[Rfam]
RNA sequence: UGGGUGGUCAACUAGCGCGGGUCUGGCGGAGCGCGGUGGCGCGCGGAGACCGCGAGGCGACCGGGAGCGGCUGGGUCCCCGGCGGCGCGCCCCUCGGCCGGGCCGGGAGCCGCGCCAGUCGGUGCCCCCGGCCGAGCGCGGUCCGCCUCCCUCUCAGCGAUCAUCCGUCCGGAGUGCGGCCCGCGGGCAUGCCGGAUCCACCAGGGGCGCCGCCACCGGCGCUCGCAGGCCGCGGGUGAAGAAAGUGCGGACUCGCUCGGCCCGGAGCGAAGAGGUGGCCGGGAGUGAAGCGGUGGCCGGGAGUGAAGAGGUGGCCGGGAGCGAAGAGGUGGCCGGGAGCGAGGAAAUG
Dot-bracket structure: ...................((((((((..........((.((((((...)))).......(((((.((......)).)))))......)).))...)))))))).......................................((..(((................(((((............)))))................((((((((....)))))))).............................(((((......))))).........................................................................)))..))